[Rfam]
RNA sequence: UCCCGCCGUCUUUCUUGGACGUUUCCUCCCUAAACUUGGCGGUGCCUUCGGGCACCGCCUUCUUUUUUUCCGCC
Number, nucleotide and partner (000 for none) at each position: 001u000002c000003c000004c000005g000006c000007c000008g020009u019010c018011u017012u000013u000014c000015u000016u000017g011018g010019a009020c008021g000022u000023u000024u000025c000026c000027u000028c000029c000030c000031u000032a000033a000034a000035c000036u000037u000038g059039g058040c057041g056042g055043u054044g053045c052046c051047u000048u000049c000050g000051g046052g045053c044054a043055c042056c041057g040058c039059c038060u000061u000062c000063u000064u000065u000066u000067u000068u000069u000070c000071c000072g000073c000074c000
About this RNA: The family of this 74-nucleotide sequence from Neoroseomonas alkaliterrae is "Makes More Granules Regulator RNA (mmgR)". Taxonomically the source falls in Neoroseomonas (Bacteria, Pseudomonadati, Alphaproteobacteria, Acetobacteraceae). Gene Ontology terms of the family: protein binding, DNA-templated transcription, termination and response to nitrogen compound. The family's RNA type in Rfam is small RNA. From the family's description: SuhB later renamed mmgR (makes more granules regulator) was a putative non-coding RNA found multiple times in the Agrobacterium tumefaciens genome and related alpha-proteobacteria.